[Rfam]
RNA: Small nucleolar RNA SNORD87
Organism: Monodelphis domestica
RNA sequence: ACUGGUACUAUGAUGACUUAAUUCUACCUUUUUGCCGUUUACCCAACUGAAUUUGACUUUGAUGUAAAUCUAAAGACUGAGUACCAGU
Numbered sequence: 001a002c003u004g005g006u007a008c009u010a011u012g013a014u015g016a017c018u019u020a021a022u023u024c025u026a027c028c029u030u031u032u033u034g035c036c037g038u039u040u041a042c043c044c045a046a047c048u049g050a051a052u053u054u055g056a057c058u059u060u061g062a063u064g065u066a067a068a069u070c071u072a073a074a075g076a077c078u079g080a081g082u083a084c085c086a087g088u
Base pairs, nucleotide, nucleotide: 001088002087003086004085005084006083007082008081009080